[Rfam]
RNA sequence: AUAUGCCUUCGUUAGGUGAGGCUCCUGUGUUGGAGAUACGCUGCUGCCCAGAAACGUCCAAAGACGCCAACGGGUCAACAGGGACCAUCGAUAUAAGGUGGCUUUAAUGUAGCUGGGAUUUUCCCUAUGCCACACAGUGCUAAAGCUCUACGAAUGGGGGAUGAG
Numbered sequence: 001a002u003a004u005g006c007c008u009u010c011g012u013u014a015g016g017u018g019a020g021g022c023u024c025c026u027g028u029g030u031u032g033g034a035g036a037u038a039c040g041c042u043g044c045u046g047c048c049c050a051g052a053a054a055c056g057u058c059c060a061a062a063g064a065c066g067c068c069a070a071c072g073g074g075u076c077a078a079c080a081g082g083g084a085c086c087a088u089c090g091a092u093a094u095a096a097g098g099u100g101g102c103u104u105u106a107a108u109g110u111a112g113c114u115g116g117g118a119u120u121u122u123c124c125c126u127a128u129g130c131c132a133c134a135c136a137g138u139g140c141u142a143a144a145g146c147u148c149u150a151c152g153a154a155u156g157g158g159g160g161a162u163g164a165g
Base pairs, nucleotide, nucleotide: 006160007159008158009157010156011151012150013096015147016146017145020141021140022139025137026136027135028134029133030132032131033130040113041112042111043110044109046075047074048073049072055066056065057064058063081104082103083102087099088098089097115125116124117123

M-box riboswitch aptamer (ykoK leader): a 165-nucleotide RNA sequence from Sutcliffiella cohnii. For this family Rfam cites "New RNA motifs suggest an expanded scope for riboswitches in bacterial genetic control" (Barrick et al., Proc Natl Acad Sci U S A, 2004). The base pairs follow the family's consensus structure. Rfam links the family to the GO terms response to magnesium ion and regulation of gene expression.